[Rfam]
RNA sequence: GAGAUAUGAUGAGGUUUAAUUUGGUCCGUGUUUCUGAUUAAACAGUGCCGACAAUAUUUUUAACCAAACUCUGAUCUC
Number, nucleotide and partner (000 for none) at each position: 001g078002a077003g076004a075005u000006a000007u000008g000009a000010u000011g000012a000013g000014g000015u000016u000017u000018a000019a000020u000021u000022u000023g000024g000025u000026c000027c000028g000029u000030g000031u000032u000033u000034c000035u000036g000037a000038u000039u000040a000041a000042a000043c000044a000045g000046u000047g000048c000049c000050g000051a000052c000053a000054a000055u000056a000057u000058u000059u000060u000061u000062a000063a000064c000065c000066a000067a000068a000069c000070u000071c000072u000073g000074a000075u004076c003077u002078c001
Source information:
Shown here is a 78-nucleotide RNA sequence from Gossypium mustelinum, a member of the family "Small nucleolar RNA SNORD18". The family's RNA type in Rfam is C/D-box small nucleolar RNA. Its Rfam clan is "SNORD18 clan".